[Rfam]
RNA sequence: GAGCUUCGGCACCUUGGCUCUAGACUGCUUACUGUAAAUGUCACUUAAGGAACAGUAACAGUCUACAGUCAUGGCUACUGAAGCAUG
Number, nucleotide and partner (000 for none) at each position: 001g000002a000003g000004c000005u000006u000007c000008g000009g000010c000011a000012c074013c073014u000015u071016g070017g069018c068019u000020c000021u000022a000023g063024a062025c061026u060027g059028c000029u058030u057031a056032c055033u054034g000035u000036a000037a000038a000039u000040g000041u000042c000043a000044c000045u000046u000047a000048a000049g000050g000051a000052a000053c000054a033055g032056u031057a030058a029059c027060a026061g025062u024063c023064u000065a000066c000067a000068g018069u017070c016071a015072u000073g013074g012075c000076u000077a000078c000079u000080g000081a000082a000083g000084c000085a000086u000087g000

Notes
The family of this 87-nucleotide sequence from Microcaecilia unicolor is "mir-132 microRNA precursor family". The family's consensus secondary structure was predicted with RNAalifold. A search with the family's covariance model found it, with a score of 72 bits.